RNA sequence: CAUCUGUGAUGGAUAGUCGAGUGGGAGGUUAGCCGCCAAGUUAGAGACCUUGCUGCGGUCUUGGCCAGCGGGACUGGUGCCCGGUACGAAUCCUGGGGUUGUCGACUGUACUCGCGCGAGUAAUCCGCGAUCGCUACACGACAUUAAGCAAUGGAAGUGACCCUUGAGGGAAGCAAUUCUGCAGAGACUCUUCCACCCUGGGGUGGCGUCAUCGGAUUACACCGUCUCGUAACAGGGAAUUUGGCUGUUUGGCUGAACAACUACUUUU
Numbered sequence: 001c002a003u004c005u006g007u008g009a010u011g012g013a014u015a016g017u018c019g020a021g022u023g024g025g026a027g028g029u030u031a032g033c034c035g036c037c038a039a040g041u042u043a044g045a046g047a048c049c050u051u052g053c054u055g056c057g058g059u060c061u062u063g064g065c066c067a068g069c070g071g072g073a074c075u076g077g078u079g080c081c082c083g084g085u086a087c088g089a090a091u092c093c094u095g096g097g098g099u100u101g102u103c104g105a106c107u108g109u110a111c112u113c114g115c116g117c118g119a120g121u122a123a124u125c126c127g128c129g130a131u132c133g134c135u136a137c138a139c140g141a142c143a144u145u146a147a148g149c150a151a152u153g154g155a156a157g158u159g160a161c162c163c164u165u166g167a168g169g170g171a172a173g174c175a176a177u178u179c180u181g182c183a184g185a186g187a188c189u190c191u192u193c194c195a196c197c198c199u200g201g202g203g204u205g206g207c208g209u210c211a212u213c214g215g216a217u218u219a220c221a222c223c224g225u226c227u228c229g230u231a232a233c234a235g236g237g238a239a240u241u242u243g244g245c246u247g248u249u250u251g252g253c254u255g256a257a258c259a260a261c262u263a264c265u266u267u268u
Base pairs, nucleotide, nucleotide: 002014003013004012019266020265021264022263023262024261027258029256030255031254032253033252039246040245041244042243043242044241045240048237049236050235057066058065059064069229071227072226073225074224076223077222078221079220081215082214083213084212085211086209087208088207090204091203092202093201094200095199096198097197098196100143102141103140104139107138108137109136110135112130113129114128115127116126118125119124144148152195153194154193155192156191157190163186164185165184170179171178172177
The record is a 268-nucleotide RNA sequence from Aspergillus rambellii, which matches "Fungal signal recognition particle RNA" in Rfam.
The family's RNA type in Rfam is non-coding RNA gene.
Rfam 15.1 lists 748 matches to the family in 741 species.
The source organism's lineage runs through Eukaryota, Dikarya, Aspergillaceae, Aspergillus and Aspergillus subgen. Nidulantes.
The base pairs follow the family's consensus structure, which is taken from published work.